A member of the RNA family "sul1 RNA" from Aureimonas glaciei, 53 nucleotides long.
It scores 58 bits against the family's covariance model.
RNA sequence: AAUGGACCCGCCUCGCCGGGUGGCUAUGCCGGGCGCCGAUCCCCCGGCCCAUU
Numbered sequence: 001a002a003u004g005g006a007c008c009c010g011c012c013u014c015g016c017c018g019g020g021u022g023g024c025u026a027u028g029c030c031g032g033g034c035g036c037c038g039a040u041c042c043c044c045c046g047g048c049c050c051a052u053u
Base pairs, nucleotide, nucleotide: 006021007020008019009018010017028048029047030046031045032044033043